[Rfam]
RNA: FMN riboswitch aptamer (RFN element)
RNA sequence: GCUUAUUCUCAGGGCGGGGUGCAACUCCCCACCGGCGGUAAAUCCGUGUCAUUGCACACGGGAAGCCCGCGAGCGCUCAGGCUGUGGUUUAUCCUGAGGACAGCAGAUCCGGUGUGAUUCCGGGGCCGACGGUGAUAGUCCGGAUGGGAGAGAGUAACG
Numbered sequence: 001g002c003u004u005a006u007u008c009u010c011a012g013g014g015c016g017g018g019g020u021g022c023a024a025c026u027c028c029c030c031a032c033c034g035g036c037g038g039u040a041a042a043u044c045c046g047u048g049u050c051a052u053u054g055c056a057c058a059c060g061g062g063a064a065g066c067c068c069g070c071g072a073g074c075g076c077u078c079a080g081g082c083u084g085u086g087g088u089u090u091a092u093c094c095u096g097a098g099g100a101c102a103g104c105a106g107a108u109c110c111g112g113u114g115u116g117a118u119u120c121c122g123g124g125g126c127c128g129a130c131g132g133u134g135a136u137a138g139u140c141c142g143g144a145u146g147g148g149a150g151a152g153a154g155u156a157a158c159g
Base pairs, nucleotide, nucleotide: 003157004156005155006154007153008152009151010150017029018028019027031139032138033128034127035070036069037068038067065126066125073104074103108124109123110122111121112120130142131141132140